[Rfam]
RNA: Bacterial RNase P class A
RNA sequence: CCGGGGGGCCGGGCAGCCGCGUCAGGGAAACCUGCCGAGGAAAGUCCGGGCUCCACGAAACAAGGGUGGCGGGUAACGCCCGCCGGGCGUCGGGCUUCGGCUCGACGUUCAGGGAAAGUGCCACAGAGAGCAGACCGCCUCGCAAGAGGUAAGGGUGAAAGGGUGCGGCAAGAGCGCACCGCGCGACCGGCAACGGAAGCGGCACGGCAAACCCCACCUGGAGCAAGGCCUAAUAGGGGCGGCGAGACGGUCUCGAAAGGGACCGGCUGGGGUGUUUCGCCCCGACCGCCCGGGUUGGCUGCUUGAGCCUUGCGGCAACGCAAGGCCUAGAGGAAUGGCUGCCGAUGCGGGGCUGGUCCGCCCAGGGGAACUUGGAGGACACCGCCCGCGUCACAGAACCCGGCUUACAGGCCCCCCGGCAAC
Numbered sequence: 001c002c003g004g005g006g007g008g009c010c011g012g013g014c015a016g017c018c019g020c021g022u023c024a025g026g027g028a029a030a031c032c033u034g035c036c037g038a039g040g041a042a043a044g045u046c047c048g049g050g051c052u053c054c055a056c057g058a059a060a061c062a063a064g065g066g067u068g069g070c071g072g073g074u075a076a077c078g079c080c081c082g083c084c085g086g087g088c089g090u091c092g093g094g095c096u097u098c099g100g101c102u103c104g105a106c107g108u109u110c111a112g113g114g115a116a117a118g119u120g121c122c123a124c125a126g127a128g129a130g131c132a133g134a135c136c137g138c139c140u141c142g143c144a145a146g147a148g149g150u151a152a153g154g155g156u157g158a159a160a161g162g163g164u165g166c167g168g169c170a171a172g173a174g175c176g177c178a179c180c181g182c183g184c185g186a187c188c189g190g191c192a193a194c195g196g197a198a199g200c201g202g203c204a205c206g207g208c209a210a211a212c213c214c215c216a217c218c219u220g221g222a223g224c225a226a227g228g229c230c231u232a233a234u235a236g237g238g239g240c241g242g243c244g245a246g247a248c249g250g251u252c253u254c255g256a257a258a259g260g261g262a263c264c265g266g267c268u269g270g271g272g273u274g275u276u277u278c279g280c281c282c283c284g285a286c287c288g289c290c291c292g293g294g295u296u297g298g299c300u301g302c303u304u305g306a307g308c309c310u311u312g313c314g315g316c317a318a319c320g321c322a323a324g325g326c327c328u329a330g331a332g333g334a335a336u337g338g339c340u341g342c343c344g345a346u347g348c349g350g351g352g353c354u355g356g357u358c359c360g361c362c363c364a365g366g367g368g369a370a371c372u373u374g375g376a377g378g379a380c381a382c383c384g385c386c387c388g389c390g391u392c393a394c395a396g397a398a399c400c401c402g403g404c405u406u407a408c409a410g411g412c413c414c415c416c417c418g419g420c421a422a423c
Stems, first nucleotide, its partner, number of pairs: 001419010011408001012343007020037002023034004042406003046403005051223004059277002063219003067216002069083005084112001085110011113214002118212002120208003135154002137150005162180006181203001182201003187196003227300004237291006269283005307326008